[Rfam]
RNA: uup RNA
RNA sequence: GAAGACGUCGCUCCGCGCAGAUACACGAUGAAGUGUUGCUCGGAGC
Numbered sequence: 001g002a003a004g005a006c007g008u009c010g011c012u013c014c015g016c017g018c019a020g021a022u023a024c025a026c027g028a029u030g031a032a033g034u035g036u037u038g039c040u041c042g043g044a045g046c
Stems, first nucleotide, its partner, number of pairs: 011045005017039003